The record is a 533-nucleotide RNA sequence from Zygosaccharomyces rouxii, which matches "Fungal signal recognition particle RNA" in Rfam. By type it is a non-coding RNA gene.
RNA sequence: AGCUGUAAUGGCUCAAUGGUGGAAUUGUACACCUUGGGAUUUCUGACUUUGGUUCAAUCCUCGCAGUCGGACGUAGGUUAGCAUGUCACGUUUCGGCGUGGCAAGGGGUACUCACCUUCCCGUGGGGCUCCGCACUGCGCGUCGGCGACAACCGUCAUCCUUCUCUCGCUUCCAGUUGCCGAGGCCGUCAAUCUUGGCGGUCUCAGAGAGAGGGACUCGGGGUUAACGUGUCCCGGUUAUUAUCGAUCUUCGCGGGGUUUGUUUGCGCGUUCGGGCACGAGAGAAAUCCGUGUUCCUGGGCGUGUGGCAAAGUAGUUACGGGUUCCUUGUGGGCCUCGCCUUGACCGCUGAAGGGGAGUUUCAUCCAGCACAGCGAGGGCGACCCGUGAUGGAGGCGGCCGGGAUAGCACUAGUUCUCCGAGUACAAGUGCAGACUGGGUUGGCCCUGUGCCAAUCUUAACGGGCGGUGUCGCUGAUAAUUACCCACCAGUAAAGGUACGUUGCUUGCAGCGUGGGGUGUACAAAACUAUUUU
Numbered sequence: 001a002g003c004u005g006u007a008a009u010g011g012c013u014c015a016a017u018g019g020u021g022g023a024a025u026u027g028u029a030c031a032c033c034u035u036g037g038g039a040u041u042u043c044u045g046a047c048u049u050u051g052g053u054u055c056a057a058u059c060c061u062c063g064c065a066g067u068c069g070g071a072c073g074u075a076g077g078u079u080a081g082c083a084u085g086u087c088a089c090g091u092u093u094c095g096g097c098g099u100g101g102c103a104a105g106g107g108g109u110a111c112u113c114a115c116c117u118u119c120c121c122g123u124g125g126g127g128c129u130c131c132g133c134a135c136u137g138c139g140c141g142u143c144g145g146c147g148a149c150a151a152c153c154g155u156c157a158u159c160c161u162u163c164u165c166u167c168g169c170u171u172c173c174a175g176u177u178g179c180c181g182a183g184g185c186c187g188u189c190a191a192u193c194u195u196g197g198c199g200g201u202c203u204c205a206g207a208g209a210g211a212g213g214g215a216c217u218c219g220g221g222g223u224u225a226a227c228g229u230g231u232c233c234c235g236g237u238u239a240u241u242a243u244c245g246a247u248c249u250u251c252g253c254g255g256g257g258u259u260u261g262u263u264u265g266c267g268c269g270u271u272c273g274g275g276c277a278c279g280a281g282a283g284a285a286a287u288c289c290g291u292g293u294u295c296c297u298g299g300g301c302g303u304g305u306g307g308c309a310a311a312g313u314a315g316u317u318a319c320g321g322g323u324u325c326c327u328u329g330u331g332g333g334c335c336u337c338g339c340c341u342u343g344a345c346c347g348c349u350g351a352a353g354g355g356g357a358g359u360u361u362c363a364u365c366c367a368g369c370a371c372a373g374c375g376a377g378g379g380c381g382a383c384c385c386g387u388g389a390u391g392g393a394g395g396c397g398g399c400c401g402g403g404a405u406a407g408c409a410c411u412a413g414u415u416c417u418c419c420g421a422g423u424a425c426a427a428g429u430g431c432a433g434a435c436u437g438g439g440u441u442g443g444c445c446c447u448g449u450g451c452c453a454a455u456c457u458u459a460a461c462g463g464g465c466g467g468u469g470u471c472g473c474u475g476a477u478a479a480u481u482a483c484c485c486a487c488c489a490g491u492a493a494a495g496g497u498a499c500g501u502u503g504c505u506u507g508c509a510g511c512g513u514g515g516g517g518u519g520u521a522c523a524a525a526a527c528u529a530u531u532u533u
Stems, first nucleotide, its partner, number of pairs: 001013003018531005028521007036445002038441003155433001158430001184201007219419003224413001228410004232403007247393003250389002253386004263306001265305007273295007281288002321327002336382007346375005355366003
Overview
Its family is annotated with signal recognition particle, endoplasmic reticulum targeting, SRP-dependent cotranslational protein targeting to membrane, signal sequence recognition and signal recognition particle, plasma membrane targeting in the Gene Ontology.